RNA sequence: UUUCAUUCCUGGGGGCGCCAUUGCGAUGGCUGAGACUCCGUAUUGUGUGCGGUAACCCUUCGAACCUGAUCCGGGUAAUUCCGGCGAAGGGAAGGAAACGCCUGCUCCA
Numbered sequence: 001u002u003u004c005a006u007u008c009c010u011g012g013g014g015g016c017g018c019c020a021u022u023g024c025g026a027u028g029g030c031u032g033a034g035a036c037u038c039c040g041u042a043u044u045g046u047g048u049g050c051g052g053u054a055a056c057c058c059u060u061c062g063a064a065c066c067u068g069a070u071c072c073g074g075g076u077a078a079u080u081c082c083g084g085c086g087a088a089g090g091g092a093a094g095g096a097a098a099c100g101c102c103u104g105c106u107c108c109a
Stems, first nucleotide, its partner, number of pairs: 006097005011059004017030005038052006065090003071084004
Rfam assigns this 109-nucleotide sequence from Marinobacter sp. AC-23 to the family "TPP riboswitch aptamer (THI element)". Gene Ontology term of the family: thiamine pyrophosphate binding. The source organism's lineage runs through Bacteria, Pseudomonadota, Pseudomonadales, Marinobacteraceae and Marinobacter.